[Rfam]
RNA sequence: UGUCGGGCGAUGAGGAUCGCAACCAAUGCAUAGUUCACUCGGACAAAGGCGUGACGAUCCCAACAACGUCUUUCGCUCCUAGCUGAGCCUUCAG
Numbered sequence: 001u002g003u004c005g006g007g008c009g010a011u012g013a014g015g016a017u018c019g020c021a022a023c024c025a026a027u028g029c030a031u032a033g034u035u036c037a038c039u040c041g042g043a044c045a046a047a048g049g050c051g052u053g054a055c056g057a058u059c060c061c062a063a064c065a066a067c068g069u070c071u072u073u074c075g076c077u078c079c080u081a082g083c084u085g086a087g088c089c090u091u092c093a094g
Base pairs, nucleotide, nucleotide: 005090006089007088008087
The record is a 94-nucleotide sequence from Polarella glacialis, which matches "Small nucleolar RNA snR60/Z15/Z230/Z193/J17" in Rfam. Rfam links the family to the GO terms nucleolus and RNA processing. The organism belongs to Polarella, within Eukaryota.